[Rfam]
RNA: Small nucleolar RNA U54
Organism: Aegilops tauschii
RNA sequence: AGCUCAGUGAUUAGAGCCAAUUACAUUGGCAAUAUAUGCUAUACUGAUCAUACUUUGAUGAAAAGUUUAUAUGAGCU
Dot-bracket structure: (((((...................................................................)))))